RNA sequence: GGCCCAGUUCGAAGUAGAGUAGUUGAGUAGGGUCAGCCGAUACUACUAAUCUAUUCUACUUCGAAUUUGGGCCC
Numbered sequence: 001g002g003c004c005c006a007g008u009u010c011g012a013a014g015u016a017g018a019g020u021a022g023u024u025g026a027g028u029a030g031g032g033u034c035a036g037c038c039g040a041u042a043c044u045a046c047u048a049a050u051c052u053a054u055u056c057u058a059c060u061u062c063g064a065a066u067u068u069g070g071g072c073c074c
Base pairs, nucleotide, nucleotide: 001073002072003071004070005069006068007067009065010063011062012061013060014059015058016057017056018055019054020053021052022051024049026047027046028045029044032041033040034039